[Rfam]
Annotation:
Shown here is a 126-nucleotide RNA sequence from Myotis brandtii, a member of the family "mir-9193 microRNA precursor family". The match comes from Rfam's covariance-model search (55 bits). Lineage of the source: Eukaryota > Opisthokonta > Chordata > Gnathostomata > Myotis. Rfam links the family to the GO terms RISC complex and miRNA-mediated post-transcriptional gene silencing. The family has 2 seed sequences and 6,008 matches in Rfam 15.1.
RNA sequence: CGUGCACCAGUGGGGUCCCUUGGCCUGGCCUGUGCCCUCUUGCAAUCCAGGACCCCUUGAAGGAUGUCAGAGAGCUGGUCUUGGCCUUAUCCCACAGGCCAGGCCGAGGGACCCCACUGGUGCAUG
Numbered sequence: 001c002g003u004g005c006a007c008c009a010g011u012g013g014g015g016u017c018c019c020u021u022g023g024c025c026u027g028g029c030c031u032g033u034g035c036c037c038u039c040u041u042g043c044a045a046u047c048c049a050g051g052a053c054c055c056c057u058u059g060a061a062g063g064a065u066g067u068c069a070g071a072g073a074g075c076u077g078g079u080c081u082u083g084g085c086c087u088u089a090u091c092c093c094a095c096a097g098g099c100c101a102g103g104c105c106g107a108g109g110g111a112c113c114c115c116a117c118u119g120g121u122g123c124a125u126g
Stems, first nucleotide, its partner, number of pairs: 003124002006121001008119003012115014027100008